Shown here is a 73-nucleotide sequence from Bittarella massiliensis, a member of the family "tRNA". From the family's description: Transfer RNA (tRNA) molecules are approximately 80 nucleotides in length. The family's consensus secondary structure is taken from published work. The source organism's lineage runs through Bacteria, Bacillota, Clostridia, Eubacteriales and Bittarella (ex Durand et al. 2017). Gene Ontology term of the family: triplet codon-amino acid adaptor activity.
[Rfam]
Nucleotides: 073
Stems, first nucleotide, its partner, number of pairs: 001072007010025004027043005049065005
Number, partner (000 for none) and nucleotide at each position: 001072u002071c003070c004069u005068c006067c007066u008000u009000a010025g011024c012023u013022c014000a015000g016000u017000u018000g019000g020000u021000a022013g023012a024011g025010c026000a027043u028042g029041c030040g031039g032000c033000u034000g035000u036000u037000a038000a039031c040030c041029g042028c043027a044000g045000g046000g047000u048000c049065g050064c051063c052062c053061g054000u055000u056000c057000g058000a059000g060000c061053c062052g063051g064050g065049c066007a067006g068005g069004g070003g071002g072001a073000g